[Rfam]
RNA sequence: UCCAAUAGAUAGCUAACCCUAUUGUUAUAACGAGAAUCUAUUGGAGCGGAGGAACCAAAUUUUGGGGCGUGUUUCUGCCUUGUGUAAAUCUCAACAGCAGAGAGGGACAUCUCUCAGUCCUAGCCCGUCAGCUAACUUCGUAGGCAUUGAGGGAAGAUUGA
Numbered sequence: 001u002c003c004a005a006u007a008g009a010u011a012g013c014u015a016a017c018c019c020u021a022u023u024g025u026u027a028u029a030a031c032g033a034g035a036a037u038c039u040a041u042u043g044g045a046g047c048g049g050a051g052g053a054a055c056c057a058a059a060u061u062u063u064g065g066g067g068c069g070u071g072u073u074u075c076u077g078c079c080u081u082g083u084g085u086a087a088a089u090c091u092c093a094a095c096a097g098c099a100g101a102g103a104g105g106g107a108c109a110u111c112u113c114u115c116a117g118u119c120c121u122a123g124c125c126c127g128u129c130a131g132c133u134a135a136c137u138u139c140g141u142a143g144g145c146a147u148u149g150a151g152g153g154a155a156g157a158u159u160g161a
Stems, first nucleotide, its partner, number of pairs: 001045010046141006056064002065126003073102006105120004
Annotation
Shown here is a 161-nucleotide RNA from Gloeothece citriformis, a member of the family "c-di-AMP riboswitch aptamer (ydaO/yuaA leader)".